[Rfam]
RNA sequence: GCUGGUGAUGACAACACACUUGCCCUCACUGAGAAGAGCGUUCACUGAUGAGAGCAGUUCCUUGUGCUCAGUGGAGCUGAGCCAGA
Dot-bracket structure: .(((((..........................................................................))))).
Numbered sequence: 001g002c003u004g005g006u007g008a009u010g011a012c013a014a015c016a017c018a019c020u021u022g023c024c025c026u027c028a029c030u031g032a033g034a035a036g037a038g039c040g041u042u043c044a045c046u047g048a049u050g051a052g053a054g055c056a057g058u059u060c061c062u063u064g065u066g067c068u069c070a071g072u073g074g075a076g077c078u079g080a081g082c083c084a085g086a
Stems, first nucleotide, its partner, number of pairs: 002085005
Record summary: The record is an 86-nucleotide RNA from Buceros rhinoceros, which matches "Small nucleolar RNA SNORD103/SNORD85" in Rfam. The family's RNA type in Rfam is C/D-box small nucleolar RNA.